Rfam assigns this 86-nucleotide sequence from Desulforhabdus amnigena to the family "c-di-GMP-I riboswitch aptamer". Rfam's curators write: GEMM was predicted in a large-scale screen for bacterial structured RNA regulatory elements. Genes associated with GEMM are involved in a diverse array of functions, including chemotaxis regulation, signal transduction, secretion and chitin. The match comes from Rfam's covariance-model search (80 bits). On this family, see Weinberg et al., Nucleic Acids Res 2007: "Identification of 22 candidate structured RNAs in bacteria using the CMfinder comparative genomics pipeline". Rfam links the family to the GO term cyclic-di-GMP binding. The base pairs follow the family's consensus structure, which is taken from published work.
RNA sequence: GUUUGAAAAAGGCAAACCAUUCGAAAGAACGGGACGCAAAGCUUCUGACCUAAGUCCUUAGGGGAUAGGGUAGCAGGGUUGCCGGG
Numbered sequence: 001g002u003u004u005g006a007a008a009a010a011g012g013c014a015a016a017c018c019a020u021u022c023g024a025a026a027g028a029a030c031g032g033g034a035c036g037c038a039a040a041g042c043u044u045c046u047g048a049c050c051u052a053a054g055u056c057c058u059u060a061g062g063g064g065a066u067a068g069g070g071u072a073g074c075a076g077g078g079u080u081g082c083c084g085g086g
Stems, first nucleotide, its partner, number of pairs: 012037002017032002020029003040080004045076003048071003055065004